Source information:
A member of the RNA family "Saccharopolyspora sRNA 350" from Streptomyces tagetis, 505 nucleotides long. The family's consensus secondary structure was predicted with RNAfold. NCBI's taxonomy places the organism under Bacteria, Bacillati, Actinomycetes, Kitasatosporales, Streptomyces.
RNA sequence: CGGGCGGUGUACUCCCAGAUGGCGUCGCUGGAGAGCAGGGCCUGAUCGCCGAAGUAGGCGCCGUCGGCGAGGACCCCGAGGACGGCGUCGCCGCCGUAGGGGCCGGUGCCGACCUUCUCUACGCGGCCGUGCGCGAGCAGGUAGACCUCGUCGGCCGGGCUGCCGAACGACGCGAUCACCUCGCCCGGGGCGAACUCCCGCUGCUCGCAGCGCUGGGCGAUUUCCGAGAGGACUUCCUCGUCCUCGUACGACCGCAGGGCCGGCAGCUCGCCCAGCUCGGCGGGGAUGACCUCGACGCGGUCACCGGUCUUGACGAACGUCACCCGGCCGUCGCCCACGGCGAAGGACAGGCGCCGGUUGACCCGGUACGUGCCGCCCUGGACGUCCACCCAGGGAAGCGUGCGCAGGAGCCAGCGGGAGCUGAUCUCCUGCAUCUGAGGUACGGACUUGGUCGUGGUGGCCAGGUUCCGCGCGGCCGCCGUGCCGAGACUCUGCUGCGGCCUGG
Dot-bracket structure: .....((((.((..((.(..((...((.(......(((((((...(.((((..((...(.(.(.((((...(.((((....(((((......))))).)))))....))))........(.(...((..((.(((.(..((.((....((....((((((((..............))....))))))..))..))))..)))).)..)..))...).)....).).)...)).((...(((.((...(..(((.((...((......)).....)))))..).)).)))...))..)))).)..)))))))...).))....))..)((((......))))........(.(.(((...((.......)).))).).)))..)).))))(((((.(.((..(.(.(.......)).)...)).).))))).....(..(..((((((((((.......)))))).))))..)..)((.(((....((......)))))...)).
Numbered sequence: 001c002g003g004g005c006g007g008u009g010u011a012c013u014c015c016c017a018g019a020u021g022g023c024g025u026c027g028c029u030g031g032a033g034a035g036c037a038g039g040g041c042c043u044g045a046u047c048g049c050c051g052a053a054g055u056a057g058g059c060g061c062c063g064u065c066g067g068c069g070a071g072g073a074c075c076c077c078g079a080g081g082a083c084g085g086c087g088u089c090g091c092c093g094c095c096g097u098a099g100g101g102g103c104c105g106g107u108g109c110c111g112a113c114c115u116u117c118u119c120u121a122c123g124c125g126g127c128c129g130u131g132c133g134c135g136a137g138c139a140g141g142u143a144g145a146c147c148u149c150g151u152c153g154g155c156c157g158g159g160c161u162g163c164c165g166a167a168c169g170a171c172g173c174g175a176u177c178a179c180c181u182c183g184c185c186c187g188g189g190g191c192g193a194a195c196u197c198c199c200g201c202u203g204c205u206c207g208c209a210g211c212g213c214u215g216g217g218c219g220a221u222u223u224c225c226g227a228g229a230g231g232a233c234u235u236c237c238u239c240g241u242c243c244u245c246g247u248a249c250g251a252c253c254g255c256a257g258g259g260c261c262g263g264c265a266g267c268u269c270g271c272c273c274a275g276c277u278c279g280g281c282g283g284g285g286a287u288g289a290c291c292u293c294g295a296c297g298c299g300g301u302c303a304c305c306g307g308u309c310u311u312g313a314c315g316a317a318c319g320u321c322a323c324c325c326g327g328c329c330g331u332c333g334c335c336c337a338c339g340g341c342g343a344a345g346g347a348c349a350g351g352c353g354c355c356g357g358u359u360g361a362c363c364c365g366g367u368a369c370g371u372g373c374c375g376c377c378c379u380g381g382a383c384g385u386c387c388a389c390c391c392a393g394g395g396a397a398g399c400g401u402g403c404g405c406a407g408g409a410g411c412c413a414g415c416g417g418g419a420g421c422u423g424a425u426c427u428c429c430u431g432c433a434u435c436u437g438a439g440g441u442a443c444g445g446a447c448u449u450g451g452u453c454g455u456g457g458u459g460g461c462c463a464g465g466u467u468c469c470g471c472g473c474g475g476c477c478g479c480c481g482u483g484c485c486g487a488g489a490c491u492c493u494g495c496u497g498c499g500g501c502c503u504g505g
Stems, first nucleotide, its partner, number of pairs: 006390004011385002015381002018328001021325002026319002029316001036312007046303001048301004054233002059228001061226001063224001065111004072103001074102004082097005120219001122217001126213002130209001131206001133204003137201001140198002143196002149192002155188006161178002235295002240290003244286002249283001252280003256277002261270002329342004351379001353377001355375003361371002391431005397425001399423002403418001405416001407415001437476001440473001443470004447465006477504002480499003487496002